[Rfam]
RNA: azaaromatic riboswitch aptamer (yjdF RNA)
RNA sequence: CAAAACAAAGAUAAAAACGCAACGUACAUCUUUGAUGUGCCAGAGCCGGUAGGUAGCCCGGUCGUCCUAUAUAAAUAGGGUAAGUAACCUGCCCCUCCGGGUUGUCCUCUGUUGUGUAAAAAGUUU
Number, nucleotide and partner (000 for none) at each position: 001c000002a000003a000004a000005a117006c116007a115008a113009a112010g000011a110012u000013a000014a000015a000016a000017a000018c000019g000020c000021a000022a000023c000024g000025u000026a000027c000028a000029u000030c000031u000032u000033u000034g000035a000036u000037g000038u000039g000040c000041c000042a000043g063044a062045g000046c061047c060048g059049g058050u000051a000052g000053g000054u000055a000056g000057c000058c049059c048060g047061g046062u044063c043064g081065u080066c079067c078068u077069a076070u000071a000072u000073a000074a000075a000076u069077a068078g067079g066080g065081u064082a000083a000084g000085u000086a000087a000088c000089c000090u000091g102092c101093c100094c099095c000096u000097c000098c000099g094100g093101g092102u091103u000104g000105u000106c000107c000108u000109c000110u011111g000112u009113u008114g000115u007116g006117u005118a000119a000120a000121a000122a000123g000124u000125u000126u000